[Rfam]
RNA sequence: CCCAGGGUGCAAGCCCCGGGCCACACAUCCGCCUGCAGUGCUGGCAGCCUCUUUGGGCACCAGACAUGAAAUUCAACAGCAACCGCCAGUAGAUUAAACCAAUUGAACGUCUGAAGCUGUGGUGCCGGCACAGGAGUCUCUGGUUUCGGGGCAUCCCGUGCUUCUUUAAGCAGGCGGGUUACCCUUG
Number, nucleotide and partner (000 for none) at each position: 001c020002c019003c018004a000005g016006g015007g014008u013009g000010c000011a000012a000013g008014c007015c006016c005017c000018g003019g002020g001021c000022c000023a000024c000025a000026c000027a179028u178029c177030c176031g175032c174033c173034u172035g171036c170037a000038g000039u000040g000041c000042u000043g000044g129045c128046a000047g126048c000049c124050u000051c000052u000053u000054u000055g000056g000057g000058c000059a000060c000061c000062a000063g000064a000065c000066a000067u000068g000069a000070a000071a000072u000073u000074c000075a000076a120077c119078a118079g117080c116081a000082a000083c113084c000085g111086c000087c109088a000089g000090u000091a000092g104093a103094u102095u101096a000097a000098a000099c000100c000101a095102a094103u093104u092105g000106a000107a000108c000109g087110u000111c085112u000113g083114a000115a000116g080117c079118u078119g077120u076121g000122g000123u000124g049125c000126c047127g000128g045129c044130a000131c000132a000133g000134g000135a000136g000137u000138c000139u000140c000141u000142g000143g000144u000145u000146u000147c000148g000149g000150g000151g000152c000153a000154u000155c000156c000157c000158g000159u000160g000161c000162u000163u000164c000165u000166u000167u000168a000169a000170g036171c035172a034173g033174g032175c031176g030177g029178g028179u027180u000181a000182c000183c000184c000185u000186u000187g000
This 187-nucleotide RNA sequence belongs to the Rfam family "RT-16 RNA". Rfam classes the family as a small RNA. The sequence is in the family's curated seed alignment.